Shown here is a 384-nucleotide RNA from Porphyromonas gingivicanis, a member of the family "Bacterial RNase P class A". Lineage of the source: Bacteria > Pseudomonadati > Bacteroidia > Bacteroidales > Porphyromonas. It scores 241 bits against the family's covariance model. Gene Ontology terms of the family: dimeric ribonuclease P complex, tRNA processing and ribonuclease P activity. The family's RNA type in Rfam is ribozyme.
RNA sequence: AUAGCAAAUCGGCUUGUCGCUGGUCACUCUUCUUAGAAAGAGUGAAAAGAGGAAAGUCCGGGCAACGUAGAGCACCAUACUUCCUAACGGGAAGUCUUUUGUCUUUGAGAAAUUGAGGACAGGAGGAGUAGUGUAACAGAGAAUAACCGCCCUGUUUGUACAGGGUAAGGGUGAAAAGGUGAGGUAAGAGCUCACCGGAAAGGGUAGUGAUACUCUUUGCCGUACAUCUUAUGGGUUGUAAGAUCAAGUAUACCGAUGUUUAUGAGGGUUGCUCGUCCUCUAUCGGGGGGUAGAUCGCUUGAGCUAUGCGGUGACGUAUAGUUUAGAUUAAUGACAAGCGCCGCUCAUGCGGUACAGAACCCGGCUUAUAGAUUUGCUGUACUU
Numbered sequence: 001a002u003a004g005c006a007a008a009u010c011g012g013c014u015u016g017u018c019g020c021u022g023g024u025c026a027c028u029c030u031u032c033u034u035a036g037a038a039a040g041a042g043u044g045a046a047a048a049g050a051g052g053a054a055a056g057u058c059c060g061g062g063c064a065a066c067g068u069a070g071a072g073c074a075c076c077a078u079a080c081u082u083c084c085u086a087a088c089g090g091g092a093a094g095u096c097u098u099u100u101g102u103c104u105u106u107g108a109g110a111a112a113u114u115g116a117g118g119a120c121a122g123g124a125g126g127a128g129u130a131g132u133g134u135a136a137c138a139g140a141g142a143a144u145a146a147c148c149g150c151c152c153u154g155u156u157u158g159u160a161c162a163g164g165g166u167a168a169g170g171g172u173g174a175a176a177a178g179g180u181g182a183g184g185u186a187a188g189a190g191c192u193c194a195c196c197g198g199a200a201a202g203g204g205u206a207g208u209g210a211u212a213c214u215c216u217u218u219g220c221c222g223u224a225c226a227u228c229u230u231a232u233g234g235g236u237u238g239u240a241a242g243a244u245c246a247a248g249u250a251u252a253c254c255g256a257u258g259u260u261u262a263u264g265a266g267g268g269u270u271g272c273u274c275g276u277c278c279u280c281u282a283u284c285g286g287g288g289g290g291u292a293g294a295u296c297g298c299u300u301g302a303g304c305u306a307u308g309c310g311g312u313g314a315c316g317u318a319u320a321g322u323u324u325a326g327a328u329u330a331a332u333g334a335c336a337a338g339c340g341c342c343g344c345u346c347a348u349g350c351g352g353u354a355c356a357g358a359a360c361c362c363g364g365c366u367u368a369u370a371g372a373u374u375u376g377c378u379g380u381a382c383u384u
Base pairs, nucleotide, nucleotide: 001380002379003378004377005376006375007374008373009372010371011369012339013338014337015336016335017334018333020049021048024045025044026043027042028041029040030039031038054367055366056365058364059363060362061361062360063238064237065236066235070274071273072272073271075234076233077232078231079230080094081093082092083091084090095124096122097121125229126228131227132226133225134224135223147170148169149166150165151164152163153162154161155160178196179195180194181193182192183191198220199218200217201216202215203214204213205212206211242296243295244294245293253286254285255284256283257282265279266278267277268276269275303322304321305320306319307318308317309316310315